[Rfam]
RNA sequence: AUUCCCUGUGAUCCUCUAUUCACCAUGCUUAUACUGACCAUUGAAGUGAUUGAAUCGCUCUAUUUCUGAGAGAAUU
Numbered sequence: 001a002u003u004c005c006c007u008g009u010g011a012u013c014c015u016c017u018a019u020u021c022a023c024c025a026u027g028c029u030u031a032u033a034c035u036g037a038c039c040a041u042u043g044a045a046g047u048g049a050u051u052g053a054a055u056c057g058c059u060c061u062a063u064u065u066c067u068g069a070g071a072g073a074a075u076u
Base pairs, nucleotide, nucleotide: 001075002074003073004072
RNA: Small nucleolar RNA snoR53Y
Organism: Cannabis sativa